6S / SsrS RNA: a 183-nucleotide sequence from Oceanisphaera arctica. Rfam classes the family as a non-coding RNA gene. Lineage of the source: Bacteria > Pseudomonadota > Gammaproteobacteria > Aeromonadales > Oceanisphaera.
[Rfam]
RNA sequence: CUUUCCCUGGGGUGUCCGUCAGUCGGGUGGCGUCCCUGAGCCGAUAAUCACAGCACAGGAAAGCCGUGUUAUUUACUAUUGAGCAUGCUCGGCCCGACCGAGAAGCCUGCGGUAGAUACCGGAUUUCCGCCUUGAACCAACGGGUUCAAGGACUAACACCUGCAACGGCACCCUGGGGAUCCC
Numbered sequence: 001c002u003u004u005c006c007c008u009g010g011g012g013u014g015u016c017c018g019u020c021a022g023u024c025g026g027g028u029g030g031c032g033u034c035c036c037u038g039a040g041c042c043g044a045u046a047a048u049c050a051c052a053g054c055a056c057a058g059g060a061a062a063g064c065c066g067u068g069u070u071a072u073u074u075a076c077u078a079u080u081g082a083g084c085a086u087g088c089u090c091g092g093c094c095c096g097a098c099c100g101a102g103a104a105g106c107c108u109g110c111g112g113u114a115g116a117u118a119c120c121g122g123a124u125u126u127c128c129g130c131c132u133u134g135a136a137c138c139a140a141c142g143g144g145u146u147c148a149a150g151g152a153c154u155a156a157c158a159c160c161u162g163c164a165a166c167g168g169c170a171c172c173c174u175g176g177g178g179a180u181c182c183c
Base pairs, nucleotide, nucleotide: 004179005178006177007176008175009174010173011172012171013170014169015168017167018166019165032153033152034151035150037148038147039146040145041144042143058128059127060126062124064122065121066120069118071117072116073115074114075113076112077111083106084105088102089101090100091099092098
Dot-bracket structure: ...((((((((((((.(((............((((.((((((...............(((.(.(((..(.(((((((.....((...(((((.....)))))..))....)))))))).))).).)))..............)))))).))))...........)))))))))))))))....